[Rfam]
RNA sequence: AGAGCGGCGUAAAAGGCGACCGCUAGUGGAGCAACUCGCUCCGCGACACCGUCAAAUUGCGGGAAGUCCCUAAAGCUGAGCGCUACCAAGCGAGCGUCGAAAGACGAGCGUGGCCGGGGUAAUGACCUAGGGUACGGUAACAACGCGCCAGAUGAUACAAUGGGUGAUCCGCAGCCAAGUCCUAAGUCCCUCGGCCCCUCCCGGCCGGGGCGAUACGGAUGCAGUUCAACGACUAAAUGGUGGUGGGUUCUGCGCGGAACGCGUCCUGCGUACCCGCCGCAGGGCUUAAGAUAUAGUCUGGCCCCUCGCGAAAGCGGACC
Numbered sequence: 001a002g003a004g005c006g007g008c009g010u011a012a013a014a015g016g017c018g019a020c021c022g023c024u025a026g027u028g029g030a031g032c033a034a035c036u037c038g039c040u041c042c043g044c045g046a047c048a049c050c051g052u053c054a055a056a057u058u059g060c061g062g063g064a065a066g067u068c069c070c071u072a073a074a075g076c077u078g079a080g081c082g083c084u085a086c087c088a089a090g091c092g093a094g095c096g097u098c099g100a101a102a103g104a105c106g107a108g109c110g111u112g113g114c115c116g117g118g119g120u121a122a123u124g125a126c127c128u129a130g131g132g133u134a135c136g137g138u139a140a141c142a143a144c145g146c147g148c149c150a151g152a153u154g155a156u157a158c159a160a161u162g163g164g165u166g167a168u169c170c171g172c173a174g175c176c177a178a179g180u181c182c183u184a185a186g187u188c189c190c191u192c193g194g195c196c197c198c199u200c201c202c203g204g205c206c207g208g209g210g211c212g213a214u215a216c217g218g219a220u221g222c223a224g225u226u227c228a229a230c231g232a233c234u235a236a237a238u239g240g241u242g243g244u245g246g247g248u249u250c251u252g253c254g255c256g257g258a259a260c261g262c263g264u265c266c267u268g269c270g271u272a273c274c275c276g277c278c279g280c281a282g283g284g285c286u287u288a289a290g291a292u293a294u295a296g297u298c299u300g301g302c303c304c305c306u307c308g309c310g311a312a313a314g315c316g317g318a319c320c
Stems, first nucleotide, its partner, number of pairs: 015021001047245005053239002058173006068164003174225002179220004187213002190210002229299001231298005247285008306317004
Source information
A member of the RNA family "Group I catalytic intron" from Trichoderma cornu-damae, 320 nucleotides long. The match comes from Rfam's covariance-model search (89 bits). Rfam 15.1 lists 5,602 matches to the family in 1,395 species. Lineage of the source: Eukaryota > Dikarya > saccharomyceta > leotiomyceta > Trichoderma. Rfam describes the family as follows. Group I catalytic introns are large self-splicing ribozymes. They catalyse their own excision from mRNA, tRNA and rRNA precursors in a wide range of organisms. The core secondary structure consists of 9 paired regions (P1-P9). The literature on the family includes a 1990 paper in Annu Rev Biochem by Cech, "Self-splicing of group I introns".